[Rfam]
RNA: SAM (S-adenosyl methionine) riboswitch aptamer
RNA sequence: AGUAAUGAGCGCCAGUUUUAAGCCCUGACUUGCUGGCCGGCAACCCUCUCUUGCGGUGGGGUGCCUCAGGUGAAUACUCGGCAAACCCAGCUACCCGAGGCUGUGGCUUGCAAGCGUGAACC
Dot-bracket structure: ((((....(.((((((....((......)).)))))))(((..(((.((.....))..))).))).........))))..((((.((.................)).))))...........
Numbered sequence: 001a002g003u004a005a006u007g008a009g010c011g012c013c014a015g016u017u018u019u020a021a022g023c024c025c026u027g028a029c030u031u032g033c034u035g036g037c038c039g040g041c042a043a044c045c046c047u048c049u050c051u052u053g054c055g056g057u058g059g060g061g062u063g064c065c066u067c068a069g070g071u072g073a074a075u076a077c078u079c080g081g082c083a084a085a086c087c088c089a090g091c092u093a094c095c096c097g098a099g100g101c102u103g104u105g106g107c108u109u110g111c112a113a114g115c116g117u118g119a120a121c122c
Stems, first nucleotide, its partner, number of pairs: 001078004009038001011037006021030002039065003044061003048056002081111004086106002